[Rfam]
RNA sequence: GACGAGAGAUUGGACAACGGAAUCCCAAAAGCAGCUGUUGUGAACGGUUCAGCUGCAGUUGGGAUCCGUUAGCCGAUCUCUUGUAA
Numbered sequence: 001g002a003c004g005a006g007a008g009a010u011u012g013g014a015c016a017a018c019g020g021a022a023u024c025c026c027a028a029a030a031g032c033a034g035c036u037g038u039u040g041u042g043a044a045c046g047g048u049u050c051a052g053c054u055g056c057a058g059u060u061g062g063g064a065u066c067c068g069u070u071a072g073c074c075g076a077u078c079u080c081u082u083g084u085a086a
Stems, first nucleotide, its partner, number of pairs: 009077005017069005023063003027060002031056007
Dot-bracket structure: ........(((((...(((((.(((.((..(((((((............)))))))..))))).)))))...))))).........
mir-191 microRNA precursor family: an 86-nucleotide RNA sequence from Eleutherodactylus coqui. Pairs were carried over by alignment from the consensus structure, which was predicted with RNAalifold. On this family, see Coutinho et al., Physiol Genomics 2007: "Discovery and profiling of bovine microRNAs from immune-related and embryonic tissues". Rfam links the family to the GO terms RISC complex and miRNA-mediated post-transcriptional gene silencing.